[Rfam]
RNA sequence: GAAAGGGCGUGCAAAUGCAAAGCACCGCCUGGGCGCAGUCUAAAAGAACAAGACGUAGACAAGGAAAAGUUGUCGCGCGCCCCAGUUAGG
Numbered sequence: 001g002a003a004a005g006g007g008c009g010u011g012c013a014a015a016u017g018c019a020a021a022g023c024a025c026c027g028c029c030u031g032g033g034c035g036c037a038g039u040c041u042a043a044a045a046g047a048a049c050a051a052g053a054c055g056u057a058g059a060c061a062a063g064g065a066a067a068a069g070u071u072g073u074c075g076c077g078c079g080c081c082c083c084a085g086u087u088a089g090g
Base pairs, nucleotide, nucleotide: 005030006029007028008027009026010024011023012022031082032081033080034079035078036077
RNA: S4-Clostridia ribosomal protein leader